A member of the RNA family "mir-4899 microRNA precursor family" from Branchiostoma belcheri, 87 nucleotides long.
RNA sequence: UGCCUGUGGACUAACUCCCUCACAACGGGCCAGCUGAAUACUUCCUGUUUCUUCCUGGUCGUAUUGAGGGAGAGAAAAAUGGUUUCC
Number, nucleotide and partner (000 for none) at each position: 001u000002g000003c000004c000005u000006g000007u000008g000009g000010a000011c000012u000013a000014a000015c072016u071017c070018c069019c068020u067021c066022a065023c000024a000025a062026c061027g000028g060029g059030c058031c057032a056033g055034c000035u000036g051037a050038a049039u000040a000041c000042u000043u000044c000045c000046u000047g000048u000049u038050u037051c036052u000053u000054c000055c033056u032057g031058g030059u029060c028061g026062u025063a000064u000065u022066g021067a020068g019069g018070g017071a016072g015073a000074g000075a000076a000077a000078a000079a000080u000081g000082g000083u000084u000085u000086c000087c000
NCBI's taxonomy places the organism under Eukaryota, Eumetazoa, Chordata, Amphioxiformes, Branchiostoma. Its family is annotated with miRNA-mediated post-transcriptional gene silencing and RISC complex in the Gene Ontology. The family's consensus secondary structure was predicted with RNAalifold.